Rfam assigns this 101-nucleotide sequence from Lysinibacillus halotolerans to the family "SAM riboswitch aptamer (S box leader)".
[Rfam]
RNA sequence: UUCUUAUCAAGAGAAGCAGAGGGACUGGCCCAAUGAAGCUUCAGCAACCAACUUUCAAGUAAGGUGCUAAAUCCAGCAGGCGAAAAGCCGGAAGAUAAGGA
Dot-bracket structure: ((((((((....(((((...(((.[[[[)))......)))))((((.(((..(...)..)..))))))...(]]]](.(((.....))))..)))))))))